[Rfam]
The family of this 104-nucleotide RNA sequence from Sphaerisporangium krabiense is "azaaromatic riboswitch aptamer (yjdF RNA)".
The match comes from Rfam's covariance-model search (54 bits).
Pairs were carried over by alignment from the consensus structure, which is taken from published work.
NCBI's taxonomy places the organism under Bacteria, Bacillati, Streptosporangiales, Streptosporangiaceae, Sphaerisporangium.

RNA sequence: UCGUCGGCGCAUGCGAAAACGCGGCCUGGUCGGUAGCCCAGGCGCCGUCGUCCGACGGUUUGUAUCCGCCCUCUCCAGGGAUGUCCGGCAUGCCGGAAUCCGGC
Numbered sequence: 001u002c003g004u005c006g007g008c009g010c011a012u013g014c015g016a017a018a019a020c021g022c023g024g025c026c027u028g029g030u031c032g033g034u035a036g037c038c039c040a041g042g043c044g045c046c047g048u049c050g051u052c053c054g055a056c057g058g059u060u061u062g063u064a065u066c067c068g069c070c071c072u073c074u075c076c077a078g079g080g081a082u083g084u085c086c087g088g089c090a091u092g093c094c095g096g097a098a099u100c101c102g103g104c
Stems, first nucleotide, its partner, number of pairs: 004096003009093005024043006044059006069080004